[Rfam]
RNA: L31-Actinobacteria ribosomal protein leader
RNA sequence: CUGGUUCCGGUUCACGUUCACACCGUGUGGGCGACCCGGGGGCA
Numbered sequence: 001c002u003g004g005u006u007c008c009g010g011u012u013c014a015c016g017u018u019c020a021c022a023c024c025g026u027g028u029g030g031g032c033g034a035c036c037c038g039g040g041g042g043c044a
Stems, first nucleotide, its partner, number of pairs: 004043002007039004015033008